Shown here is a 99-nucleotide sequence from Nyssa sinensis, a member of the family "MIR477 microRNA precursor family". Rfam 15.1 lists 63 matches to the family in 31 species. It scores 70 bits against the family's covariance model. The family's consensus secondary structure was predicted with WAR.

[Rfam]
Nucleotides: 099
Base pairs, nucleotide, nucleotide: 003098004097005096006095008093009092010091011090012089013088014087015086016085017084018083019082023078024077025076026075027074028073029072030071031070032069033068
Number, partner (000 for none) and nucleotide at each position: 001000g002000a003098a004097a005096u006095u007000u008093c009092c010091a011090a012089c013088c014087u015086c016085c017084c018083u019082c020000a021000a022000a023078g024077g025076c026075u027074u028073c029072c030071a031070a032069u033068u034000a035000u036000g037000c038000u039000g040000g041000u042000u043000u044000c045000a046000u047000a048000u049000c050000c051000a052000c053000u054000u055000g056000g057000a058000g059000a060000a061000g062000u063000c064000a065000g066000a067000a068033a069032g070031u071030u072029g073028g074027g075026a076025g077024u078023c079000g080000g081000a082019g083018a084017g085016g086015g087014a088013g089012g090011u091010u092009g093008g094000a095006g096005g097004u098003u099000u